RNA sequence: CGUGCGCAUGCGCCGAAUCCCGCAAGGGAACCGGGGAACCACCGCACCUGGGGUGAAUCGGGCCUUCACCGGCCCGUAGGAGACCUUCCUGCUCCGAACCCGUCAGCUAACCCGGUAGGCGGAGAAGGAAGGAAAG
Numbered sequence: 001c002g003u004g005c006g007c008a009u010g011c012g013c014c015g016a017a018u019c020c021c022g023c024a025a026g027g028g029a030a031c032c033g034g035g036g037a038a039c040c041a042c043c044g045c046a047c048c049u050g051g052g053g054u055g056a057a058u059c060g061g062g063c064c065u066u067c068a069c070c071g072g073c074c075c076g077u078a079g080g081a082g083a084c085c086u087u088c089c090u091g092c093u094c095c096g097a098a099c100c101c102g103u104c105a106g107c108u109a110a111c112c113c114g115g116u117a118g119g120c121g122g123a124g125a126a127g128g129a130a131g132g133a134a135a136g
Stems, first nucleotide, its partner, number of pairs: 011121004018029003030116006040050002051101003059076004079095004